[Rfam]
RNA sequence: GCCAUACAUCAAGAGUCGGGCCGACGCCUGACACCAACCUGCUCCCGAGCAAGGUGGUACCCCGUCAACGACGGGGGAUGUGGCCGGACCGGCAAAAAACGGGACCAUC
Numbered sequence: 001g002c003c004a005u006a007c008a009u010c011a012a013g014a015g016u017c018g019g020g021c022c023g024a025c026g027c028c029u030g031a032c033a034c035c036a037a038c039c040u041g042c043u044c045c046c047g048a049g050c051a052a053g054g055u056g057g058u059a060c061c062c063c064g065u066c067a068a069c070g071a072c073g074g075g076g077g078a079u080g081u082g083g084c085c086g087g088a089c090c091g092g093c094a095a096a097a098a099a100c101g102g103g104a105c106c107a108u109c
Base pairs, nucleotide, nucleotide: 006081007080008079009078010077015032017030018029019028020027021026033058034057035056038054039053040052041050042049043048083093084092085091086090
RNA: SAM-I/IV (S-adenosyl methionine) riboswitch aptamer